[Rfam]
RNA sequence: CCGGCUUUAGCUCAGUUGGUAGAGCGGAAGACUGUAGUGUAAAGACAUCUUCAGGUCACUUGUUCGAAUCAGGUAAGCCGGA
Numbered sequence: 001c002c003g004g005c006u007u008u009a010g011c012u013c014a015g016u017u018g019g020u021a022g023a024g025c026g027g028a029a030g031a032c033u034g035u036a037g038u039g040u041a042a043a044g045a046c047a048u049c050u051u052c053a054g055g056u057c058a059c060u061u062g063u064u065c066g067a068a069u070c071a072g073g074u075a076a077g078c079c080g081g082a
Stems, first nucleotide, its partner, number of pairs: 001081007010025004027052005058074005